[Rfam]
PreQ1 (pre queuosine) riboswitch aptamer: a 45-nucleotide RNA sequence from Bacillus thuringiensis. The base pairs follow the family's consensus structure. For this family Rfam cites "Identification of four genes necessary for biosynthesis of the modified nucleoside queuosine" (Reader et al., J Biol Chem, 2004). Its family is annotated with queuosine biosynthetic process in the Gene Ontology. From the family's description: This family is a bacterial riboswitch that binds to the metabolite preQ1, an intermediate in the biosynthesis of the modified nucleoside queuosine from GTP. One example of this riboswitch is located in the leader of the Bacillus subtilis ykvJKLM (queCDEF) operon which encodes four genes necessary for queuosine production.
RNA sequence: AAUAACGUGGUUCGAAACCAUCCCACGUAAAAAAACUAAGGAGAU
Dot-bracket structure: .....(((((.....[......))))).........]........